[Rfam]
RNA sequence: GGCCAGAGGGAAAAAAGAAAUAUCAAUUAAAACAUAUAGUAUGGGCAAGCAGGGAACUAGAACGAUUAGCGGUUAAUCCUGGCC
Numbered sequence: 001g002g003c004c005a006g007a008g009g010g011a012a013a014a015a016a017g018a019a020a021u022a023u024c025a026a027u028u029a030a031a032a033c034a035u036a037u038a039g040u041a042u043g044g045g046c047a048a049g050c051a052g053g054g055a056a057c058u059a060g061a062a063c064g065a066u067u068a069g070c071g072g073u074u075a076a077u078c079c080u081g082g083c084c
Stems, first nucleotide, its partner, number of pairs: 001084006008077001
RNA: HIV gag stem loop 3 (GSL3)